[Rfam]
RNA sequence: UCCGGUCCUCGGUAGUGGCCCUCGGGACGGCGAUCGCCGCGCCGCGGGCCUCGAUCGAAGACCGAA
Numbered sequence: 001u002c003c004g005g006u007c008c009u010c011g012g013u014a015g016u017g018g019c020c021c022u023c024g025g026g027a028c029g030g031c032g033a034u035c036g037c038c039g040c041g042c043c044g045c046g047g048g049c050c051u052c053g054a055u056c057g058a059a060g061a062c063c064g065a066a
Base pairs, nucleotide, nucleotide: 001066003064004063005062006061007060009058010057011056012055013054017050018049019048020047021046023044024043025042028039029038030037031036
The family of this 66-nucleotide sequence from an Actinomycetales bacterium is "Actino-pnp RNA". The match comes from Rfam's covariance-model search (63 bits).